Overview
The record is a 182-nucleotide RNA from Neobacillus piezotolerans, which matches "Lysine riboswitch aptamer" in Rfam.

[Rfam]
RNA sequence: UAGUGGGGUAGAGGCGCGGUAUUUAACAGUCUUUAGUGGAGCCUGAGAAGCAUCGAGACUAGGGAGAAGGAAAUACCGCCGAAGUGGGCCAUAUACUCAAUAUUGCCUGCUGGGCCUGCAGUGAAGAACUGCCGGACUGUCUCAAUAAGCUGCCCGGUUUAUUGAGUUGUGCUAUCUCAUUG
Numbered sequence: 001u002a003g004u005g006g007g008g009u010a011g012a013g014g015c016g017c018g019g020u021a022u023u024u025a026a027c028a029g030u031c032u033u034u035a036g037u038g039g040a041g042c043c044u045g046a047g048a049a050g051c052a053u054c055g056a057g058a059c060u061a062g063g064g065a066g067a068a069g070g071a072a073a074u075a076c077c078g079c080c081g082a083a084g085u086g087g088g089c090c091a092u093a094u095a096c097u098c099a100a101u102a103u104u105g106c107c108u109g110c111u112g113g114g115c116c117u118g119c120a121g122u123g124a125a126g127a128a129c130u131g132c133c134g135g136a137c138u139g140u141c142u143c144a145a146u147a148a149g150c151u152g153c154c155c156g157g158u159u160u161a162u163u164g165a166g167u168u169g170u171g172c173u174a175u176c177u178c179a180u181u182g
Base pairs, nucleotide, nucleotide: 006177007176008175009174010173011172016079017078018077019076020075021074022073023072024071031064032063033062034061035060036059037058083111084110085109086108087107088106089105091103092102093101094100112138113137115135116134118132119131120130121129122128141166142165143164144163145162146161147160148159149158